[Rfam]
The family of this 107-nucleotide sequence from Cajanus cajan is "MIR1507 microRNA precursor family". It scores 107 bits against the family's covariance model. Rfam links the family to the GO terms RISC complex and miRNA-mediated post-transcriptional gene silencing.
RNA sequence: CAGUGUUUGGCAGAGGUGUAUGGAGUGAGAGAAGUCAAAGGGGUUUUGCUGAUUCAGUCAGUACUCUGUUGUCUCUCUCAUUCCAUACAUCGUCUGACGAACGUAGU
Numbered sequence: 001c002a003g004u005g006u007u008u009g010g011c012a013g014a015g016g017u018g019u020a021u022g023g024a025g026u027g028a029g030a031g032a033a034g035u036c037a038a039a040g041g042g043g044u045u046u047u048g049c050u051g052a053u054u055c056a057g058u059c060a061g062u063a064c065u066c067u068g069u070u071g072u073c074u075c076u077c078u079c080a081u082u083c084c085a086u087a088c089a090u091c092g093u094c095u096g097a098c099g100a101a102c103g104u105a106g107u
Base pairs, nucleotide, nucleotide: 005102006101007100008099009098011096012095013094014093015091016090017089018088019087020086021085022084023083024082025081026080027079028078029077030076031075032074034073036071037070038069050060051059052058053057